The family of this 116-nucleotide sequence from Nonomuraea glycinis is "TPP riboswitch aptamer (THI element)". The match comes from Rfam's covariance-model search (67 bits). From the family's description: Vitamin B(1) in its active form thiamin pyrophosphate (TPP) is an essential coenzyme that is synthesised by coupling of pyrimidine and thiazole moieties in bacteria.
[Rfam]
RNA sequence: GCAGUCCAACGCGGGAGCCCGGUUCGACCGGGCUGAGAGGACGGCUACUCAUCAGCCGCCGACCGCCAGAACCUGAUCCGGAUAAUGCCGGCGAAGGGAGUUGCGUGGUGAGCGAC
Numbered sequence: 001g002c003a004g005u006c007c008a009a010c011g012c013g014g015g016a017g018c019c020c021g022g023u024u025c026g027a028c029c030g031g032g033c034u035g036a037g038a039g040g041a042c043g044g045c046u047a048c049u050c051a052u053c054a055g056c057c058g059c060c061g062a063c064c065g066c067c068a069g070a071a072c073c074u075g076a077u078c079c080g081g082a083u084a085a086u087g088c089c090g091g092c093g094a095a096g097g098g099a100g101u102u103g104c105g106u107g108g109u110g111a112g113c114g115a116c
Stems, first nucleotide, its partner, number of pairs: 007103004011066004017033005040060001042058005072097003078091004